[Rfam]
RNA sequence: UAUCUUUGCGCCCUGAUUGUAUGUCCCUGAGCUAGACAAAGGAAUUAUCAAUCAGAUACAUAAAAAUCAUUUUAACAAUAUUGGCAUG
Numbered sequence: 001u002a003u004c005u006u007u008g009c010g011c012c013c014u015g016a017u018u019g020u021a022u023g024u025c026c027c028u029g030a031g032c033u034a035g036a037c038a039a040a041g042g043a044a045u046u047a048u049c050a051a052u053c054a055g056a057u058a059c060a061u062a063a064a065a066a067u068c069a070u071u072u073u074a075a076c077a078a079u080a081u082u083g084g085c086a087u088g
Base pairs, nucleotide, nucleotide: 014054015053016052017051018050019049